A member of the RNA family "Small Cajal body specific RNA 3" from Leptobrachium leishanense, 136 nucleotides long. The base pairs follow the family's consensus structure, which was predicted with RNAalifold. scaRNAs are a specific class of small nuclear RNAs which localise to the Cajal bodies and guide the modification of RNA polymerase II transcribed spliceosomal RNAs U1, U2, U4, U5 and U12. The match comes from Rfam's covariance-model search (57 bits). Taxonomically the source falls in Leptobrachium (Eukaryota, Metazoa, Eumetazoa, Batrachia).
RNA sequence: UCUGGAAGCUGUAUAUACGAAUGCAUGCAGGUGGAGUGUCUGCAUGCACUAACAGUCUUCCUAUAGCAAUUUAAUGGAGAUCUCUGCCUAGCUCGGUCAAGAUCAGACUGUCCCAGGUCGUUCCUCUCCGUACACU
Dot-bracket structure: ...(((.(((((.........(((((((....(.....)..)))))))...)))))..)))..............(((((...(.(((..(..(((...........)))..)..))).)....))))).......